This 115-nucleotide RNA sequence from Nocardioides kongjuensis belongs to the Rfam family "Guanidine-I riboswitch aptamer". The organism belongs to Nocardioides, within Bacteria. Rfam describes the family as follows. This family represents a conserved RNA structure found upstream of the ykkC and yxkD genes in Bacillus subtilis and related genes in other bacteria. The function of this family is unclear although it has been suggested that it may function to switch on efflux pumps and detoxification systems in response to harmful environmental molecules. It scores 70 bits against the family's covariance model.

RNA sequence: GUGGGGCGCCCCUAGGGUUCCGUUCCCGGCUGGCUGGUUGUCGGGAGGUCUGGUCCGAGAGGGGAGGCGGAGCCCGGCGGGCUCCGUUCCACGGCGGGACAAAAGCCCGGGAGGC
Numbered sequence: 001g002u003g004g005g006g007c008g009c010c011c012c013u014a015g016g017g018u019u020c021c022g023u024u025c026c027c028g029g030c031u032g033g034c035u036g037g038u039u040g041u042c043g044g045g046a047g048g049u050c051u052g053g054u055c056c057g058a059g060a061g062g063g064g065a066g067g068c069g070g071a072g073c074c075c076g077g078c079g080g081g082c083u084c085c086g087u088u089c090c091a092c093g094g095c096g097g098g099a100c101a102a103a104a105g106c107c108c109g110g111g112a113g114g115c
Base pairs, nucleotide, nucleotide: 007066009064010063011062012061015056016055020053021052022050023047024046025045026044027043028042029041030040067087068086069085070084071083072082073081074080090110092113096108097107098106